[Rfam]
RNA sequence: UUUUGUAAUCUUCCACAGCUUUCUUGAACUGCAUGGUAAUCUAUUUAGAUAAAAUUUUAAGCUUGUUCUUCAAGUACAUGGUGGUAUAUUGAUCGCCUUUGCGGUUCAAUAAAGCUGUGGGAAACUACAGAUA
Numbered sequence: 001u002u003u004u005g006u007a008a009u010c011u012u013c014c015a016c017a018g019c020u021u022u023c024u025u026g027a028a029c030u031g032c033a034u035g036g037u038a039a040u041c042u043a044u045u046u047a048g049a050u051a052a053a054a055u056u057u058u059a060a061g062c063u064u065g066u067u068c069u070u071c072a073a074g075u076a077c078a079u080g081g082u083g084g085u086a087u088a089u090u091g092a093u094c095g096c097c098u099u100u101g102c103g104g105u106u107c108a109a110u111a112a113a114g115c116u117g118u119g120g121g122a123a124a125c126u127a128c129a130g131a132u133a
Stems, first nucleotide, its partner, number of pairs: 003130005013120003017116006024109004029104005
The family of this 133-nucleotide RNA sequence from Thalictrum thalictroides is "MIR396 microRNA precursor family". The literature on the family includes a 2005 paper in Plant Physiol by Xie et al., "Expression of Arabidopsis MIRNA genes". Rfam links the family to the GO terms miRNA-mediated post-transcriptional gene silencing and RISC complex.